[Rfam]
Actinobacteria sRNA Ms_IGR-5: a 176-nucleotide RNA sequence from Litorihabitans aurantiacus.
The source organism's lineage runs through Bacteria, Bacillati, Micrococcales, Beutenbergiaceae and Litorihabitans.
It scores 74 bits against the family's covariance model.
RNA sequence: ACACGGGAAGGAGGUGGUCCGAGAAAUGAUUCACUCUGGGACUUGUGAGGUGGUCGCCCGCUAGUCGGGCCCACGGACGGCUCGCCGCGAAUCCACGGCGAUCACCGGAACCCGCGGGAGCCGCACCCUCGUCCAGUGCGGCGGUCGACGAUUCGACAGCCCGCGGGUUCUUCCGU
Numbered sequence: 001a002c003a004c005g006g007g008a009a010g011g012a013g014g015u016g017g018u019c020c021g022a023g024a025a026a027u028g029a030u031u032c033a034c035u036c037u038g039g040g041a042c043u044u045g046u047g048a049g050g051u052g053g054u055c056g057c058c059c060g061c062u063a064g065u066c067g068g069g070c071c072c073a074c075g076g077a078c079g080g081c082u083c084g085c086c087g088c089g090a091a092u093c094c095a096c097g098g099c100g101a102u103c104a105c106c107g108g109a110a111c112c113c114g115c116g117g118g119a120g121c122c123g124c125a126c127c128c129u130c131g132u133c134c135a136g137u138g139c140g141g142c143g144g145u146c147g148a149c150g151a152u153u154c155g156a157c158a159g160c161c162c163g164c165g166g167g168u169u170c171u172u173c174c175g176u
Stems, first nucleotide, its partner, number of pairs: 013058006059089003064085002067083004108170011121141006